[Rfam]
RNA sequence: AUCUCUGGAGAGCGCUAGUUUGACUAGCCACCAAAGAAGAAAGCCUUUUGGCAAAACUUUCAGGUAAACGGACAGAGGU
Numbered sequence: 001a002u003c004u005c006u007g008g009a010g011a012g013c014g015c016u017a018g019u020u021u022g023a024c025u026a027g028c029c030a031c032c033a034a035a036g037a038a039g040a041a042a043g044c045c046u047u048u049u050g051g052c053a054a055a056a057c058u059u060u061c062a063g064g065u066a067a068a069c070g071g072a073c074a075g076a077g078g079u
Stems, first nucleotide, its partner, number of pairs: 001079007014028004030065003034060001037059003043052002
The record is a 79-nucleotide sequence from Sporosarcina sp. HYO08, which matches "Glycine riboswitch aptamer" in Rfam. The organism belongs to Sporosarcina, within Bacteria. The pairing is the family consensus, mapped onto this sequence. This family represents the bacterial glycine riboswitch. Glycine riboswitches usually consist of two metabolite-binding aptamers domains with similar structures in tandem. The aptamers cooperatively bind glycine to regulate the expression of downstream genes.